[Rfam]
RNA sequence: AUAAAUCUUCGGGGGUGGGUGAGAUUCCCUACCGGCGGUAUAGCCCGCGAGCCAUUAUGGCAUGAUUUGGUGAGAUUCCAAAGCCGACAGUAAAGUCUGGAUGAAAGAAGAUAGUG
Numbered sequence: 001a002u003a004a005a006u007c008u009u010c011g012g013g014g015g016u017g018g019g020u021g022a023g024a025u026u027c028c029c030u031a032c033c034g035g036c037g038g039u040a041u042a043g044c045c046c047g048c049g050a051g052c053c054a055u056u057a058u059g060g061c062a063u064g065a066u067u068u069g070g071u072g073a074g075a076u077u078c079c080a081a082a083g084c085c086g087a088c089a090g091u092a093a094a095g096u097c098u099g100g101a102u103g104a105a106a107g108a109a110g111a112u113a114g115u116g
Base pairs, nucleotide, nucleotide: 005112006111007110008109009108010107017029018028019027031096032095033086034085035048036047037046038045043084044083053060066082067081068080069079070078088099089098090097
The record is a 116-nucleotide RNA sequence from Peptostreptococcus anaerobius, which matches "FMN riboswitch aptamer (RFN element)" in Rfam.
The family's consensus secondary structure is taken from published work.